Rfam assigns this 47-nucleotide RNA sequence to the family "SAM/SAH riboswitch aptamer". The base pairs follow the family's consensus structure, which is taken from published work.

RNA sequence: UCCUAGCUGCAACGGCUUCCUGGCGCAGCUUACAUUUUAUUGGAGCA
Numbered sequence: 001u002c003c004u005a006g007c008u009g010c011a012a013c014g015g016c017u018u019c020c021u022g023g024c025g026c027a028g029c030u031u032a033c034a035u036u037u038u039a040u041u042g043g044a045g046c047a
Stems, first nucleotide, its partner, number of pairs: 004032002006029005013022002015046003019043002